A member of the RNA family "RAGATH-31 RNA", 54 nucleotides long. The base pairs follow the family's consensus structure, which is taken from published work.
RNA sequence: GGAGGACGUAAGGGACAAGGGCUGGUACACGUCGCCGCCCUCCUUGCGGCCUUC
Number, nucleotide and partner (000 for none) at each position: 001g054002g053003a052004g051005g000006a000007c048008g047009u046010a045011a044012g043013g042014g041015a000016c000017a000018a000019g040020g039021g038022c037023u000024g036025g035026u034027a000028c000029a000030c000031g000032u000033c000034g026035c025036c024037g022038c021039c020040c019041u014042c013043c012044u011045u010046g009047c008048g007049g000050c000051c004052u003053u002054c001